[Rfam]
This 88-nucleotide RNA sequence from Atlantisia rogersi belongs to the Rfam family "Small nucleolar SNORD12/SNORD106". Gene Ontology terms of the family: RNA processing and nucleolus.
RNA sequence: GCUGGUGGAGGUGAUGACGGUUUUUUCCCCGUCAGAGCGACACUGUUGAUUACCGCAGUUCAAGCCAGAUGGCGUCUGAUGCACCAGC
Number, nucleotide and partner (000 for none) at each position: 001g088002c087003u086004g085005g084006u083007g082008g000009a080010g000011g000012u000013g000014a000015u000016g000017a000018c000019g000020g000021u000022u000023u000024u000025u000026u000027c000028c000029c000030c000031g000032u000033c000034a000035g000036a000037g000038c000039g000040a000041c000042a000043c000044u000045g000046u000047u000048g000049a000050u000051u000052a000053c000054c000055g000056c000057a000058g000059u000060u000061c000062a000063a000064g000065c000066c000067a000068g000069a000070u000071g000072g000073c000074g000075u000076c000077u000078g000079a000080u009081g000082c007083a006084c005085c004086a003087g002088c001
Lineage of the source: Eukaryota > Craniata > Vertebrata > Tetrapoda > Atlantisia. Rfam classes the family as a C/D-box small nucleolar RNA. Its Rfam clan is "SNORD12 clan".